The record is a 99-nucleotide sequence from Chrysochloris asiatica, which matches "mir-342 microRNA precursor family" in Rfam.

RNA sequence: GACCCUGGGUUCAAGGUGAGGGGUGCUCUCUGUGAUUGAGGGACAUGGUACAUGAAAUUGUCUCACACAGAAAUCGCACCCGUCUCCUUGGCCUGCUCA
Numbered sequence: 001g002a003c004c005c006u007g008g009g010u011u012c013a014a015g016g017u018g019a020g021g022g023g024u025g026c027u028c029u030c031u032g033u034g035a036u037u038g039a040g041g042g043a044c045a046u047g048g049u050a051c052a053u054g055a056a057a058u059u060g061u062c063u064c065a066c067a068c069a070g071a072a073a074u075c076g077c078a079c080c081c082g083u084c085u086c087c088u089u090g091g092c093c094u095g096c097u098c099a
Stems, first nucleotide, its partner, number of pairs: 012090005018084002021081006029071006037065005
Dot-bracket structure: ...........(((((.((.((((((..((((((..(((((...................)))))))))))....)))))).)).))))).........
Pairs were carried over by alignment from the consensus structure, which was predicted with RNAalifold. The source organism's lineage runs through Eukaryota, Gnathostomata, Dipnotetrapodomorpha, Mammalia and Chrysochloris.